[Rfam]
The record is a 96-nucleotide RNA sequence, which matches "Glycine riboswitch aptamer" in Rfam. It scores 53 bits against the family's covariance model.
RNA sequence: GGACGCAACUCUGGAGAGCGCAUUAAAUUUAUGCCACCAAAGGGGAAUGUUCGUAACAGAACUAAACUCUCAGGUAAAAAGGACAGAGAAGGGAAU
Number, nucleotide and partner (000 for none) at each position: 001g000002g000003a000004c000005g000006c091007a000008a000009c088010u087011c086012u085013g084014g000015a000016g000017a000018g000019c000020g034021c033022a032023u031024u000025a000026a000027a000028u000029u000030u000031a023032u022033g021034c020035c000036a075037c074038c073039a000040a070041a000042g000043g069044g068045g067046a000047a000048u000049g062050u061051u000052c000053g000054u000055a000056a000057c000058a000059g000060a000061a050062c049063u000064a000065a000066a000067c045068u044069c043070u040071c000072a000073g038074g037075u036076a000077a000078a000079a000080a000081g000082g000083a000084c013085a012086g011087a010088g009089a000090a000091g006092g000093g000094a000095a000096u000